[Rfam]
RNA sequence: GAAAAUGUUUUCUAGGGUUCCGCAGCAAUUCUGCUGGUCUGGUCCGAGAGAAAACUCACAGCGUUUGCUGUGUCACGGAAGGACAAAAGCCUGGGAGAA
Number, nucleotide and partner (000 for none) at each position: 001g000002a000003a000004a000005a000006u000007g055008u054009u053010u052011u051012c050013u000014a000015g045016g044017g000018u000019u000020c042021c041022g039023c036024a035025g034026c033027a032028a000029u000030u000031c000032u027033g026034c025035u024036g023037g000038u000039c022040u000041g021042g020043u000044c016045c015046g000047a000048g000049a000050g012051a011052a010053a009054a008055c007056u000057c072058a071059c070060a069061g068062c067063g000064u000065u000066u000067g062068c061069u060070g059071u058072g057073u000074c094075a000076c097077g000078g000079a000080a092081g091082g090083a000084c000085a000086a000087a000088a000089g000090c082091c081092u080093g000094g074095g000096a000097g076098a000099a000
Guanidine-I riboswitch aptamer: a 99-nucleotide RNA sequence from Niallia taxi. The source organism's lineage runs through Bacteria, Bacillota, Bacilli, Bacillaceae and Niallia. The base pairs follow the family's consensus structure. Its family is annotated with regulation of gene expression in the Gene Ontology.